Background
Shown here is a 140-nucleotide sequence from Phoenix dactylifera, a member of the family "Small nucleolar RNA snoR136".

RNA sequence: AGUGCUUCAUUGAUGUUUGAGCCUAUGAAUUUCUUGUAUUUUAUGGGCCUUGUGAGGAAGUGAAGCAAGAAAAACAAGGCUCCCCUCGCUAUCCAAUGCACAUCUGCUUUGUUGCAUUUGGACGUUGGGGAGCUAUAUGU
Numbered sequence: 001a002g003u004g005c006u007u008c009a010u011u012g013a014u015g016u017u018u019g020a021g022c023c024u025a026u027g028a029a030u031u032u033c034u035u036g037u038a039u040u041u042u043a044u045g046g047g048c049c050u051u052g053u054g055a056g057g058a059a060g061u062g063a064a065g066c067a068a069g070a071a072a073a074a075c076a077a078g079g080c081u082c083c084c085c086u087c088g089c090u091a092u093c094c095a096a097u098g099c100a101c102a103u104c105u106g107c108u109u110u111g112u113u114g115c116a117u118u119u120g121g122a123c124g125u126u127g128g129g130g131a132g133c134u135a136u137a138u139g140u
Stems, first nucleotide, its partner, number of pairs: 003062006013051001019050001021048006029042001079133007087124002092122005100112003
Pairs were carried over by alignment from the consensus structure, which was predicted with mfold.